[Rfam]
RNA: FMN riboswitch aptamer (RFN element)
Organism: Phaeobacter sp. CECT 5382
RNA sequence: AUUUGUUCUCAGGGCGGGGUGAAAUUCCCCACCGGCGGUAAGCAGGGUCCAACUGGUCUUCUGUCAGCCCGCGAGCGGCUUUUCGUGUCCACGACCCAAAACUGGGAACCGGUUUUGGGGAACUUGUGGAAUUUGCGCAAAAAGUGUCCAGCAGAUCUGGUGUGAUUCCAGAGCCGACGGUGAAAGUCCGGAUGGAAGAGAACGUGC
Numbered sequence: 001a002u003u004u005g006u007u008c009u010c011a012g013g014g015c016g017g018g019g020u021g022a023a024a025u026u027c028c029c030c031a032c033c034g035g036c037g038g039u040a041a042g043c044a045g046g047g048u049c050c051a052a053c054u055g056g057u058c059u060u061c062u063g064u065c066a067g068c069c070c071g072c073g074a075g076c077g078g079c080u081u082u083u084c085g086u087g088u089c090c091a092c093g094a095c096c097c098a099a100a101a102c103u104g105g106g107a108a109c110c111g112g113u114u115u116u117g118g119g120g121a122a123c124u125u126g127u128g129g130a131a132u133u134u135g136c137g138c139a140a141a142a143a144g145u146g147u148c149c150a151g152c153a154g155a156u157c158u159g160g161u162g163u164g165a166u167u168c169c170a171g172a173g174c175c176g177a178c179g180g181u182g183a184a185a186g187u188c189c190g191g192a193u194g195g196a197a198g199a200g201a202a203c204g205u206g207c
Base pairs, nucleotide, nucleotide: 004204005203006202007201008200009199010198017029018028019027031187032186033176034175035072036071037070038069067174068173075152076151156172157171158170159169160168178190179189180188